[Rfam]
RNA sequence: CUUCCGCCCUCCCCGCACAGGAGGACGGAUCGAGGUAAGCCGCGCGCUCUGCCCUGACCGCGCAGGCACCUCCCAACCGGCCGCCGGGAACCGCACACCCUGUGGCCGUUAGUACUCCGGGCUACGGUGCCGGGCGGGCUGAGGGUCCCGCCCCGGCAC
Number, nucleotide and partner (000 for none) at each position: 001c000002u000003u029004c028005c027006g026007c000008c024009c023010u022011c021012c020013c000014c000015g000016c000017a000018c000019a000020g012021g011022a010023g009024g008025a000026c006027g005028g004029a003030u000031c000032g072033a071034g070035g069036u068037a000038a000039g000040c065041c000042g063043c000044g061045c060046g000047c056048u000049c000050u000051g000052c000053c000054c000055u000056g047057a000058c000059c000060g045061c044062g000063c042064a000065g040066g000067c000068a036069c035070c034071u033072c032073c000074c000075a000076a000077c000078c108079g107080g106081c105082c104083g103084c000085c000086g100087g099088g098089a000090a000091c000092c000093g000094c000095a000096c000097a000098c088099c087100c086101u000102g000103u083104g082105g081106c080107c079108g078109u000110u000111a000112g000113u129114a128115c127116u126117c000118c000119g123120g000121g000122c000123u119124a000125c000126g116127g115128u114129g113130c000131c000132g153133g152134g151135c150136g149137g148138g147139c000140u000141g000142a000143g000144g000145g000146u000147c138148c137149c136150g135151c134152c133153c132154c000155g000156g000157c000158a000159c000
RNA: Streptomyces sRNA scr5239
Organism: Streptomyces sp. Mg1